[Rfam]
RNA sequence: AACGUGUUCCGGGGUCGGUGCAAUUCCGAACCGGCGGUGACAGUCCGCGAACCGUGAACGCCGUGCACGCGGGACCCCCUCCGUCCAGGAGGCAGUGGUCCGGCUGGUGCGGGGUGAACGGCCGAACCGGUGGAAUUCCGGUGCCGACAGUACAGUCUGGAUGGUAGGUACACGUG
Numbered sequence: 001a002a003c004g005u006g007u008u009c010c011g012g013g014g015u016c017g018g019u020g021c022a023a024u025u026c027c028g029a030a031c032c033g034g035c036g037g038u039g040a041c042a043g044u045c046c047g048c049g050a051a052c053c054g055u056g057a058a059c060g061c062c063g064u065g066c067a068c069g070c071g072g073g074a075c076c077c078c079c080u081c082c083g084u085c086c087a088g089g090a091g092g093c094a095g096u097g098g099u100c101c102g103g104c105u106g107g108u109g110c111g112g113g114g115u116g117a118a119c120g121g122c123c124g125a126a127c128c129g130g131u132g133g134a135a136u137u138c139c140g141g142u143g144c145c146g147a148c149a150g151u152a153c154a155g156u157c158u159g160g161a162u163g164g165u166a167g168g169u170a171c172a173c174g175u176g
Stems, first nucleotide, its partner, number of pairs: 003174005009168002016028003030156002032146002034048004043144002052121004126142005148159003
Source information:
The family of this 176-nucleotide RNA from Kocuria rhizophila is "FMN riboswitch aptamer (RFN element)". The match comes from Rfam's covariance-model search (93 bits). The organism belongs to Kocuria rhizophila, within Bacteria.